[Rfam]
RNA: Purine riboswitch aptamer
RNA sequence: UGUGAAUAGAGAUUGAACCUUCGUAUAUCCUUAGGAAUAUGGCCUAAGAGUCUCUACCGGAUUGCCGUAAAUAAUCUGACUAUGAAGGCAGAAUUAGUAUAG
Numbered sequence: 001u002g003u004g005a006a007u008a009g010a011g012a013u014u015g016a017a018c019c020u021u022c023g024u025a026u027a028u029c030c031u032u033a034g035g036a037a038u039a040u041g042g043c044c045u046a047a048g049a050g051u052c053u054c055u056a057c058c059g060g061a062u063u064g065c066c067g068u069a070a071a072u073a074a075u076c077u078g079a080c081u082a083u084g085a086a087g088g089c090a091g092a093a094u095u096a097g098u099a100u101a102g
Base pairs, nucleotide, nucleotide: 018088019087020086021085022084023083024082025081030048031047032046033045034044035043058078059077060076061075062074063073064072